[Rfam]
RNA sequence: UCCUUAUCAAGAGAAGUGGAGGGACAGGCCCUAUGAAGCUUCAGCAACCGGUACAGUCGUACACGGUGCUAAAUCCGACAGAUUAAUUCUGGCAGAUGAGGA
Numbered sequence: 001u002c003c004u005u006a007u008c009a010a011g012a013g014a015a016g017u018g019g020a021g022g023g024a025c026a027g028g029c030c031c032u033a034u035g036a037a038g039c040u041u042c043a044g045c046a047a048c049c050g051g052u053a054c055a056g057u058c059g060u061a062c063a064c065g066g067u068g069c070u071a072a073a074u075c076c077g078a079c080a081g082a083u084u085a086a087u088u089c090u091g092g093c094a095g096a097u098g099a100g101g102a
Stems, first nucleotide, its partner, number of pairs: 001102008013042005021031003027076002043070004048066002051062004074094001079091004

SAM riboswitch aptamer (S box leader): a 102-nucleotide sequence from Turicibacter sp. HGF1. A search with the family's covariance model found it, with a score of 89 bits. Its family is annotated with regulation of gene expression in the Gene Ontology. Rfam's curators write: The SAM riboswitch is found upstream of a number of genes which code for proteins involved in methionine or cysteine biosynthesis in Gram-positive bacteria. The SAM riboswitch acts at the level of transcription termination control. Lineage of the source: Bacteria > Bacillota > Erysipelotrichia > Turicibacteraceae > Turicibacter.